Fluoride riboswitch aptamer (crcB RNA motif): a 73-nucleotide RNA from Ruminococcaceae bacterium FB2012.
Taxonomically the source falls in Oscillospiraceae (Bacteria, Bacillati, Bacillota, Eubacteriales).
A search with the family's covariance model found it, with a score of 51 bits.
[Rfam]
RNA sequence: AAGAAUAAAGGGAAUGAUGUUCUCCCUCGGGAAACCGAAACCGCUUUUUCAAGCUGAUGACUUCUGCUCUUAC
Numbered sequence: 001a002a003g004a005a006u007a008a009a010g011g012g013a014a015u016g017a018u019g020u021u022c023u024c025c026c027u028c029g030g031g032a033a034a035c036c037g038a039a040a041c042c043g044c045u046u047u048u049u050c051a052a053g054c055u056g057a058u059g060a061c062u063u064c065u066g067c068u069c070u071u072a073c
Stems, first nucleotide, its partner, number of pairs: 010026004016064002019061003043054004